[Rfam]
RNA sequence: UAGCUAUGAUGAAGAGAAUUUACUGACCUGGUAUCACCUGAAAUGUCACAUGACUGUCACAUGAUCGGUGUUGACCAGGGUAUGACCUACACAAAUCUUCUCUCUGAGCAA
Numbered sequence: 001u002a003g004c005u006a007u008g009a010u011g012a013a014g015a016g017a018a019u020u021u022a023c024u025g026a027c028c029u030g031g032u033a034u035c036a037c038c039u040g041a042a043a044u045g046u047c048a049c050a051u052g053a054c055u056g057u058c059a060c061a062u063g064a065u066c067g068g069u070g071u072u073g074a075c076c077a078g079g080g081u082a083u084g085a086c087c088u089a090c091a092c093a094a095a096u097c098u099u100c101u102c103u104c105u106g107a108g109c110a111a
Stems, first nucleotide, its partner, number of pairs: 001110001003109002036069003